[Rfam]
RNA sequence: UAACCCGAUAAAAACAACGCUCAUAUAAUAUCGAUAAUAUGGAUCGAUAGUUUCUACCUUUGGAACCGUAAAUCCCUAGACUAUGGGUGAAGUUAUUAUAUUU
Numbered sequence: 001u002a003a004c005c006c007g008a009u010a011a012a013a014a015c016a017a018c019g020c021u022c023a024u025a026u027a028a029u030a031u032c033g034a035u036a037a038u039a040u041g042g043a044u045c046g047a048u049a050g051u052u053u054c055u056a057c058c059u060u061u062g063g064a065a066c067c068g069u070a071a072a073u074c075c076c077u078a079g080a081c082u083a084u085g086g087g088u089g090a091a092g093u094u095a096u097u098a099u100a101u102u103u
Base pairs, nucleotide, nucleotide: 018089019088020087021086022085023084024083025082029049030048031047032046033045034044035043058079059078062076063075065073
Shown here is a 103-nucleotide RNA sequence from Natronincola ferrireducens, a member of the family "Purine riboswitch aptamer". Its family is annotated with purine nucleobase biosynthetic process in the Gene Ontology. The match comes from Rfam's covariance-model search (78 bits). The base pairs follow the family's consensus structure, which is taken from published work.